[Rfam]
RNA sequence: AGAAAACUUCGGGGCGGGGCGUAAAUCCCCACCGGCUGUGUGUAUGAAAAUACGAGCCAGCGAGCCGCAGGGCAUGAUACGGUGCAAUUCCGUAGCCGACAGUAUAGUCUGGAUGGAAGAAGUUUUCU
Numbered sequence: 001a002g003a004a005a006a007c008u009u010c011g012g013g014g015c016g017g018g019g020c021g022u023a024a025a026u027c028c029c030c031a032c033c034g035g036c037u038g039u040g041u042g043u044a045u046g047a048a049a050a051u052a053c054g055a056g057c058c059a060g061c062g063a064g065c066c067g068c069a070g071g072g073c074a075u076g077a078u079a080c081g082g083u084g085c086a087a088u089u090c091c092g093u094a095g096c097c098g099a100c101a102g103u104a105u106a107g108u109c110u111g112g113a114u115g116g117a118a119g120a121a122g123u124u125u126u127c128u
Stems, first nucleotide, its partner, number of pairs: 003126008017029003031108002033098002035061004056096002066072001078094005100111003
This 128-nucleotide RNA from Treponema porcinum belongs to the Rfam family "FMN riboswitch aptamer (RFN element)". A search with the family's covariance model found it, with a score of 109 bits. Taxonomically the source falls in Treponema (Bacteria, Pseudomonadati, Spirochaetota, Spirochaetia).